[Rfam]
RNA: Makes More Granules Regulator RNA (mmgR)
Organism: Reyranella soli
Nucleotides: 074
Stems, first nucleotide, its partner, number of pairs: 008017003034059009
Number, partner (000 for none) and nucleotide at each position: 001000g002000g003000c004000a005000a006000g007000c008017g009016c010015c011000c012000u013000u014000g015010g016009g017008c018000g019000u020000u021000u022000c023000c024000u025000c026000c027000c028000u029000a030000g031000a032000c033000u034059g035058g036057c037056c038055g039054g040053a041052g042051c043000c044000u045000g046000a047000a048000a049000a050000g051042g052041c053040u054039c055038c056037g057036g058035c059034c060000u061000c062000u063000u064000u065000u066000u067000u068000g069000u070000c071000c072000g073000g074000u